[Rfam]
Overview:
Small nucleolar RNA SNORD10: a 137-nucleotide RNA sequence from Labrus bergylta. Rfam links the family to the GO terms nucleolus and RNA processing. On this family, see Huttenhofer et al., EMBO J 2001: "RNomics: an experimental approach that identifies 201 candidates for novel, small, non-messenger RNAs in mouse". Lineage of the source: Eukaryota > Opisthokonta > Gnathostomata > Actinopterygii > Labrus.

RNA sequence: UGUUAAUGAUGAAACUCAUGCGUGUCAACUGACUCUGUGAACGCCGGCUGUGUUGGCGCUCUUGUCGGCGUUCUGUUGGCUCGAGUUGUCGGCACAGCGGGGGUCCAGAGACGUGAUCAUAACUUGUUCUGAAUACA
Numbered sequence: 001u002g003u004u005a006a007u008g009a010u011g012a013a014a015c016u017c018a019u020g021c022g023u024g025u026c027a028a029c030u031g032a033c034u035c036u037g038u039g040a041a042c043g044c045c046g047g048c049u050g051u052g053u054u055g056g057c058g059c060u061c062u063u064g065u066c067g068g069c070g071u072u073c074u075g076u077u078g079g080c081u082c083g084a085g086u087u088g089u090c091g092g093c094a095c096a097g098c099g100g101g102g103g104u105c106c107a108g109a110g111a112c113g114u115g116a117u118c119a120u121a122a123c124u125u126g127u128u129c130u131g132a133a134u135a136c137a
Stems, first nucleotide, its partner, number of pairs: 001137003044101002047098005